6S / SsrS RNA: a 183-nucleotide RNA from Dialister succinatiphilus. It is annotated as a non-coding RNA gene. About the family: E. coli 6S RNA was the first non coding RNA to be sequenced, but its function was unknown until recently. NCBI's taxonomy places the organism under Bacteria, Bacillati, Bacillota, Dialister, Dialister succinatiphilus. The literature on the family includes a 2017 paper in RNA Biol by Elkina et al., "6S RNA in Rhodobacter sphaeroides: 6S RNA and pRNA transcript levels peak in late exponential phase and gene deletion causes a high salt stress phenotype". The family's consensus secondary structure is taken from published work.
[Rfam]
Nucleotides: 183
Stems, first nucleotide, its partner, number of pairs: 003180001005178010017167003030155004035150003040145001055129003059125004066119001069117007081101002086097004
Number, partner (000 for none) and nucleotide at each position: 001000g002000a003180a004000a005178c006177c007176c008175u009174g010173c011172u012171g013170u014169g015000c016000a017167c018166g019165u020000c021000g022000u023000g024000c025000c026000u027000u028000c029000u030155u031154a032153u033152u034000u035150u036149g037148a038000a039000c040145c041000a042000a043000c044000a045000c046000c047000u048000u049000u050000a051000u052000a053000a054000c055129g056128g057127g058000a059125g060124u061123u062122c063000a064000g065000c066119g067000c068000u069117g070116a071115u072114g073113a074112g075111g076000u077000g078000a079000g080000u081101c082100a083000a084000u085000g086097c087096c088095c089094c090000g091000u092000a093000c094089g095088g096087g097086g098000a099000c100082u101081g102000u103000u104000c105000a106000a107000g108000a109000a110000a111075c112074c113073u114072u115071g116070u117069c118000u119066c120000a121000a122062g123061a124060a125059c126000a127057c128056c129055c130000a131000c132000c133000u134000g135000c136000a137000a138000u139000u140000a141000u142000g143000c144000a145040g146000a147000c148037u149036c150035a151000a152033a153032a154031u155030a156000c157000g158000g159000c160000a161000a162000u163000a164000a165019a166018c167017g168000a169014c170013a171012u172011g173010g174009u175008g176007g177006g178005g179000c180003u181000a182000a183000u